The record is a 56-nucleotide RNA from Methylorubrum rhodinum, which matches "nhaA-I RNA" in Rfam. It is annotated as a riboswitch. The source organism's lineage runs through Bacteria, Pseudomonadati, Pseudomonadota, Hyphomicrobiales and Methylorubrum. Acidobacteria, Alphaproteobacteria, Betaproteobacteria and Gammaproteobacteria, Verrucomicrobia, cand. division NC10.

RNA sequence: GGGUGCGCGGUCCGUCGGUCGGACCGGCAGGACGAGCGCUGGUCGGGCCGCCAGUG
Numbered sequence: 001g002g003g004u005g006c007g008c009g010g011u012c013c014g015u016c017g018g019u020c021g022g023a024c025c026g027g028c029a030g031g032a033c034g035a036g037c038g039c040u041g042g043u044c045g046g047g048c049c050g051c052c053a054g055u056g
Base pairs, nucleotide, nucleotide: 005028006027008026009025010024011023012022013021014020037056038055039054040053041052042051043050